[Rfam]
A member of the RNA family "TPP riboswitch aptamer (THI element)" from Alkalihalobacillus alcalophilus, 110 nucleotides long. It scores 79 bits against the family's covariance model. The base pairs follow the family's consensus structure, which is taken from published work.
RNA sequence: CGAGAAAACUAGGGGUGCUUAUCUUGAAUAAGCUGAGAAAAAGGUGGUUCCUUUUACCCUUUUAACCUGAUCUGGAUCAUACCAGCGUAGGGAAGUUGAUGCUUGUUAUG
Numbered sequence: 001c002g003a004g005a006a007a008a009c010u011a012g013g014g015g016u017g018c019u020u021a022u023c024u025u026g027a028a029u030a031a032g033c034u035g036a037g038a039a040a041a042a043g044g045u046g047g048u049u050c051c052u053u054u055u056a057c058c059c060u061u062u063u064a065a066c067c068u069g070a071u072c073u074g075g076a077u078c079a080u081a082c083c084a085g086c087g088u089a090g091g092g093a094a095g096u097u098g099a100u101g102c103u104u105g106u107u108a109u110g
Stems, first nucleotide, its partner, number of pairs: 007097004011060004017033005041053004066091004072085004